Notes
Rfam assigns this 189-nucleotide sequence from Naganishia liquefaciens to the family "Group I catalytic intron". Rfam describes the family as follows. Group I catalytic introns are large self-splicing ribozymes. They catalyse their own excision from mRNA, tRNA and rRNA precursors in a wide range of organisms. The core secondary structure consists of 9 paired regions (P1-P9). These fold to essentially two domains - the P4-P6 domain (formed from the stacking of P5, P4, P6 and P6a helices) and the P3-P9 domain (formed from the P8, P3, P7 and P9 helices). The match comes from Rfam's covariance-model search (72 bits). The family's consensus secondary structure is taken from published work.

[Rfam]
RNA sequence: CCAUGGCUUUAAUGCGAGUGGCGCUAGAUCUUAAGGUCUAGAUGUAAACAAAGUAAAUUGACUGAGAAACCGUAGAUUAUUCUAUAGGCAAUCAGCAGGAUACCCCCGAGUAUCUUCAGAGACUAAAUGCUUUGCCCCUAGUACAUCACUAGGGUGAUGAUAUAGUCCAAUCUCAUGUGAAAAUAUGAG
Numbered sequence: 001c002c003a004u005g006g007c008u009u010u011a012a013u014g015c016g017a018g019u020g021g022c023g024c025u026a027g028a029u030c031u032u033a034a035g036g037u038c039u040a041g042a043u044g045u046a047a048a049c050a051a052a053g054u055a056a057a058u059u060g061a062c063u064g065a066g067a068a069a070c071c072g073u074a075g076a077u078u079a080u081u082c083u084a085u086a087g088g089c090a091a092u093c094a095g096c097a098g099g100a101u102a103c104c105c106c107c108g109a110g111u112a113u114c115u116u117c118a119g120a121g122a123c124u125a126a127a128u129g130c131u132u133u134g135c136c137c138c139u140a141g142u143a144c145a146u147c148a149c150u151a152g153g154g155u156g157a158u159g160a161u162a163u164a165g166u167c168c169a170a171u172c173u174c175a176u177g178u179g180a181a182a183a184u185a186u187g188a189g
Base pairs, nucleotide, nucleotide: 005025006024007023009021010020011019013017030036031035049134050133051132052131054129055128059097060096062095063094064093065092070088071087098115099114103110119168121167122166123165124164125163136154137153138152139151140150141149142148174187175186176185177184178183